TPP riboswitch aptamer (THI element): a 107-nucleotide sequence from Carnobacterium divergens. It scores 62 bits against the family's covariance model. NCBI's taxonomy places the organism under Bacteria, Bacillota, Bacilli, Carnobacterium, Carnobacterium divergens.

RNA sequence: ACCAUCACAAAGGGGUGCUGCAAAUGCGGCUGAGAUUGAAUCAAGUGGAUUCUAACCCUUCGAACCUGUUCGUUAGUACGAGCGUAGGAAUUGUGACGGGGCGACGA
Numbered sequence: 001a002c003c004a005u006c007a008c009a010a011a012g013g014g015g016u017g018c019u020g021c022a023a024a025u026g027c028g029g030c031u032g033a034g035a036u037u038g039a040a041u042c043a044a045g046u047g048g049a050u051u052c053u054a055a056c057c058c059u060u061c062g063a064a065c066c067u068g069u070u071c072g073u074u075a076g077u078a079c080g081a082g083c084g085u086a087g088g089a090a091u092u093g094u095g096a097c098g099g100g101g102c103g104a105c106g107a
Base pairs, nucleotide, nucleotide: 006095007094008093009092010091011059012058013057014056017030018029019028020027021026038052039051040050041049065088066087067086068085069082070081071080072079